[Rfam]
The family of this 77-nucleotide RNA from Nannospalax galili is "mir-3473 microRNA precursor family". The family has 5 seed sequences and 1,094 matches in Rfam 15.1. Gene Ontology terms of the family: miRNA-mediated post-transcriptional gene silencing, RISC complex and cellular response to mechanical stimulus. A search with the family's covariance model found it, with a score of 72 bits.
RNA sequence: ACCGCUGAGUCAUCUCUCCAGCCCCUCAAAAUUUUUUUAAAAGUAAAACUAAGGGGCUAGAGAGAUGGCUCAGUGGU
Numbered sequence: 001a002c003c004g005c006u007g008a009g010u011c012a013u014c015u016c017u018c019c020a021g022c023c024c025c026u027c028a029a030a031a032u033u034u035u036u037u038u039a040a041a042a043g044u045a046a047a048a049c050u051a052a053g054g055g056g057c058u059a060g061a062g063a064g065a066u067g068g069c070u071c072a073g074u075g076g077u
Stems, first nucleotide, its partner, number of pairs: 002076017020058005